[Rfam]
RNA sequence: UUCUUAUCAAGAGAGGUGGAGGGACUGGCCCGAUGAAACCCGGCAACCGGCAAUAGAACGGUGCUAAUUCCAGCAGAGCAUGAUCUCUGGCAGAUAAGUU
Numbered sequence: 001u002u003c004u005u006a007u008c009a010a011g012a013g014a015g016g017u018g019g020a021g022g023g024a025c026u027g028g029c030c031c032g033a034u035g036a037a038a039c040c041c042g043g044c045a046a047c048c049g050g051c052a053a054u055a056g057a058a059c060g061g062u063g064c065u066a067a068u069u070c071c072a073g074c075a076g077a078g079c080a081u082g083a084u085c086u087c088u089g090g091c092a093g094a095u096a097a098g099u100u
Stems, first nucleotide, its partner, number of pairs: 003098006013041001015040003021031003025073004042065004047061003069092001074089005

A member of the RNA family "SAM riboswitch aptamer (S box leader)" from Bacillus sp. NRRL B-14911, 100 nucleotides long. Rfam's curators put it in the seed alignment. Lineage of the source: Bacteria > Bacillati > Bacilli > Caryophanales > Bacillus. Pairs were carried over by alignment from the consensus structure, which is taken from published work. The SAM riboswitch is found upstream of a number of genes which code for proteins involved in methionine or cysteine biosynthesis in Gram-positive bacteria.